[Rfam]
This 115-nucleotide RNA sequence from Salvia splendens belongs to the Rfam family "Small nucleolar RNA snoR104". By type it is an H/ACA-box small nucleolar RNA. Taxonomically the source falls in core Calosphace (Eukaryota, Viridiplantae, eudicotyledons, Salvia). The match comes from Rfam's covariance-model search (65 bits).
RNA sequence: GGGUAGCUUCAAGAGUUAUGAAUGUUCCUGAUAUAAGCUUCCUACAAAAACCUGCUGGAAUUCCUGCAUGUAGCUCUUGAGCACGAUCUACAUGUCUCAAGUUGCAGACACAUGA
Numbered sequence: 001g002g003g004u005a006g007c008u009u010c011a012a013g014a015g016u017u018a019u020g021a022a023u024g025u026u027c028c029u030g031a032u033a034u035a036a037g038c039u040u041c042c043u044a045c046a047a048a049a050a051c052c053u054g055c056u057g058g059a060a061u062u063c064c065u066g067c068a069u070g071u072a073g074c075u076c077u078u079g080a081g082c083a084c085g086a087u088c089u090a091c092a093u094g095u096c097u098c099a100a101g102u103u104g105c106a107g108a109c110a111c112a113u114g115a
Base pairs, nucleotide, nucleotide: 001029002028003027005025008022009021010020011019053108066095067094068093069092070091071090072089073088075086076085